Shown here is an 85-nucleotide RNA sequence from Malus baccata, a member of the family "MIR2275 microRNA precursor family".
RNA sequence: AAGUCGUAUAUAAGAAUUGGAGGGGACUAAACAUAUUUAACUUCUUUAAUUUGUUUAGUUUUCUCCAAUAUCUUAUCUUCGAUAU
Numbered sequence: 001a002a003g004u005c006g007u008a009u010a011u012a013a014g015a016a017u018u019g020g021a022g023g024g025g026a027c028u029a030a031a032c033a034u035a036u037u038u039a040a041c042u043u044c045u046u047u048a049a050u051u052u053g054u055u056u057a058g059u060u061u062u063c064u065c066c067a068a069u070a071u072c073u074u075a076u077c078u079u080c081g082a083u084a085u
Stems, first nucleotide, its partner, number of pairs: 004082003008078001011075004016069006023062008032053002

The organism belongs to Malus, within Eukaryota. The base pairs follow the family's consensus structure, which was predicted with RNAalifold.